[Rfam]
RNA sequence: GGCCAGGGGGGAAAAACCAUUAUAUGUUAAAACACUUAGUAUGGGCAAGCAGGGAGCUGGAAAGAUUUGCACUUAACCCUGCCC
Number, nucleotide and partner (000 for none) at each position: 001g084002g083003c000004c081005a080006g079007g078008g077009g000010g000011g000012a000013a000014a000015a000016a000017c000018c000019a000020u000021u000022a000023u000024a000025u000026g000027u000028u000029a000030a000031a000032a000033c000034a000035c000036u000037u000038a000039g000040u000041a000042u000043g000044g000045g000046c000047a000048a000049g000050c000051a000052g000053g000054g000055a000056g000057c000058u000059g000060g000061a000062a000063a000064g000065a000066u000067u000068u000069g000070c000071a000072c000073u000074u000075a000076a000077c008078c007079c006080u005081g004082c000083c002084c001

Shown here is an 84-nucleotide RNA from Lentivirus humimdef1, a member of the family "HIV gag stem loop 3 (GSL3)". The family's RNA type in Rfam is cis-regulatory element. For this family Rfam cites "RNA interactions in the 5' region of the HIV-1 genome" (Damgaard et al., J Mol Biol, 2004). From the family's description: This family consists of several HIV gag stem loop 3 (GSL3) sequences. GSL3 is known to direct specific packaging of HIV-1 genomic RNA. Deletion of GSL3 leads to decreases in both viral RNA packaging and dimerisation. NCBI's taxonomy places the organism under Viruses, Ortervirales, Orthoretrovirinae, Lentivirus, Lentivirus humimdef1. It is one of the family's seed sequences.